[Rfam]
RNA sequence: UAUAUGCAUCAAGAGUAGGGCUGACGUCCUCGCCAACCUGCCUAACCUGGGCAAGGUGGACUCCCGUAAGGGAGAUGCGGCCAACUGGCAACCAAACAGGCCUUU
Numbered sequence: 001u002a003u004a005u006g007c008a009u010c011a012a013g014a015g016u017a018g019g020g021c022u023g024a025c026g027u028c029c030u031c032g033c034c035a036a037c038c039u040g041c042c043u044a045a046c047c048u049g050g051g052c053a054a055g056g057u058g059g060a061c062u063c064c065c066g067u068a069a070g071g072g073a074g075a076u077g078c079g080g081c082c083a084a085c086u087g088g089c090a091a092c093c094a095a096a097c098a099g100g101c102c103u104u105u
Base pairs, nucleotide, nucleotide: 006078007077008076009075010074015031017030018029019028020027021026033059034058037056038055039054040052041051042050046099080089081088082087
This 105-nucleotide RNA sequence from Pokkaliibacter plantistimulans belongs to the Rfam family "SAM-I/IV (S-adenosyl methionine) riboswitch aptamer". Pairs were carried over by alignment from the consensus structure, which is taken from published work. A search with the family's covariance model found it, with a score of 68 bits. NCBI's taxonomy places the organism under Bacteria, Gammaproteobacteria, Oceanospirillales, Balneatrichaceae, Pokkaliibacter.